[Rfam]
RNA sequence: CACAAAAUUGGCCUUUUCUUCCUGGUGCUUCCCAGAGUCGGGAAAAGCUGGGUUGAGAGGGCGAAAAAAAUAAAAA
Numbered sequence: 001c002a003c004a005a006a007a008u009u010g011g012c013c014u015u016u017u018c019u020u021c022c023u024g025g026u027g028c029u030u031c032c033c034a035g036a037g038u039c040g041g042g043a044a045a046a047g048c049u050g051g052g053u054u055g056a057g058a059g060g061g062c063g064a065a066a067a068a069a070a071u072a073a074a075a076a
Base pairs, nucleotide, nucleotide: 014059015058016057017056018055021052022051023050024049025048029044030043031042032041033040

Shown here is a 76-nucleotide RNA sequence from Saimiri boliviensis, a member of the family "mir-320 microRNA precursor family". The organism belongs to Saimiri boliviensis, within Eukaryota. Its family is annotated with positive regulation of stem cell proliferation, cellular response to glucose stimulus and miRNA-mediated post-transcriptional gene silencing in the Gene Ontology. On this family, see Berezikov et al., Genome Res 2006: "Many novel mammalian microRNA candidates identified by extensive cloning and RAKE analysis". A search with the family's covariance model found it, with a score of 78 bits. Pairs were carried over by alignment from the consensus structure, which was predicted with RNAalifold.